[Rfam]
RNA sequence: GGUUGCAAGUAUGAGGCCGUAGCAGAAGUGCUCACAGCGUGGCUCUGUCAUAUUCCAAUAAAUCUGUGAAUUAUGCU
Dot-bracket structure: ............[[.[[[..((((.(((((.......)))]]]]]...((.(((......))).))....)).))))
This 77-nucleotide RNA from Crocodylus porosus belongs to the Rfam family "Mammalian CPEB3 ribozyme". Lineage of the source: Eukaryota > Craniata > Vertebrata > Sauria > Crocodylus. Gene Ontology term of the family: RNA nuclease activity. The match comes from Rfam's covariance-model search (40 bits).